[Rfam]
RNA sequence: AACGACCGGCUGGGCAUCUAUGUGCCCGGCCCACAAGUGGAGGCUCCGAUCUCCCACCUUGCCGUCCUCAGGACGGCGGGUCAUCCGGUCAGGUGGCGCCCAUCGUUCCGUACGGACGAUGGAGCCGCCCGAUGCGCCCCGCGGUUGACCGCGGCGGUGCUCCGGUUGUUCAGGAGCCCCGCCUGUGUCCCGUCGGGGCAUUUUUC
Numbered sequence: 001a002a003c004g005a006c007c008g009g010c011u012g013g014g015c016a017u018c019u020a021u022g023u024g025c026c027c028g029g030c031c032c033a034c035a036a037g038u039g040g041a042g043g044c045u046c047c048g049a050u051c052u053c054c055c056a057c058c059u060u061g062c063c064g065u066c067c068u069c070a071g072g073a074c075g076g077c078g079g080g081u082c083a084u085c086c087g088g089u090c091a092g093g094u095g096g097c098g099c100c101c102a103u104c105g106u107u108c109c110g111u112a113c114g115g116a117c118g119a120u121g122g123a124g125c126c127g128c129c130c131g132a133u134g135c136g137c138c139c140c141g142c143g144g145u146u147g148a149c150c151g152c153g154g155c156g157g158u159g160c161u162c163c164g165g166u167u168g169u170u171c172a173g174g175a176g177c178c179c180c181g182c183c184u185g186u187g188u189c190c191c192g193u194c195g196g197g198g199c200a201u202u203u204u205u206c
Stems, first nucleotide, its partner, number of pairs: 004090006012027002028082005035059001037057004041052002061077007092129005100122008136199006143190002150187003153183005159177005
Dot-bracket structure: ...((((((..((............))(((((..(.((((((........)).)))).).(((((((...))))))))))))..)))))).(((((...((((((((.......))))))))..)))))......((((((.((.....((((((((.(((((.........))))).))))).))).))...)))))).......